[Rfam]
Source information
The family of this 195-nucleotide RNA from Erwinia mallotivora is "Yersinia sRNA 276". The family's consensus secondary structure was predicted with RNAfold. A search with the family's covariance model found it, with a score of 154 bits. The family's RNA type in Rfam is antisense RNA. Taxonomically the source falls in Erwinia (Bacteria, Pseudomonadati, Pseudomonadota, Gammaproteobacteria).
RNA sequence: CACCGACAUCAGGGAUUCAUUCUGUGAGCCCUGGCCGACGGCAAGAUAGGCAUUCAUCCCCAGCUCUUUCAUCUGCUGUUCGCCGAUUACCCUGGUGGUGAUGUUUUUACUCCAGGUAUCCGCCAGCUGACGCGCCUGCGAAGCCAGAUAGGCCGCAUUACAAAUGUUGGGUGGCAUGUUGCCAAGAUCUUUCGC
Numbered sequence: 001c002a003c004c005g006a007c008a009u010c011a012g013g014g015a016u017u018c019a020u021u022c023u024g025u026g027a028g029c030c031c032u033g034g035c036c037g038a039c040g041g042c043a044a045g046a047u048a049g050g051c052a053u054u055c056a057u058c059c060c061c062a063g064c065u066c067u068u069u070c071a072u073c074u075g076c077u078g079u080u081c082g083c084c085g086a087u088u089a090c091c092c093u094g095g096u097g098g099u100g101a102u103g104u105u106u107u108u109a110c111u112c113c114a115g116g117u118a119u120c121c122g123c124c125a126g127c128u129g130a131c132g133c134g135c136c137u138g139c140g141a142a143g144c145c146a147g148a149u150a151g152g153c154c155g156c157a158u159u160a161c162a163a164a165u166g167u168u169g170g171g172u173g174g175c176a177u178g179u180u181g182c183c184a185a186g187a188u189c190u191u192u193c194g195c
Stems, first nucleotide, its partner, number of pairs: 005189002012032003016028005034042002050059001062077003078135002081132002084129002087126001092122001094120004100111001102109002137162002140159002143156002167186002170183003